[Rfam]
RNA: Small nucleolar RNA R66
RNA sequence: UCCUGUGAUGGCAUGAAAUCUUUGAGACCUGCGAGGUGGUGGUAGUAGUAAAGUUACUCUCCCCGCCUCACUGAUGACGCAUACAAGCAUGGUUUCUGAGGAC
Numbered sequence: 001u002c003c004u005g006u007g008a009u010g011g012c013a014u015g016a017a018a019u020c021u022u023u024g025a026g027a028c029c030u031g032c033g034a035g036g037u038g039g040u041g042g043u044a045g046u047a048g049u050a051a052a053g054u055u056a057c058u059c060u061c062c063c064c065g066c067c068u069c070a071c072u073g074a075u076g077a078c079g080c081a082u083a084c085a086a087g088c089a090u091g092g093u094u095u096c097u098g099a100g101g102a103c
Stems, first nucleotide, its partner, number of pairs: 001102003033069007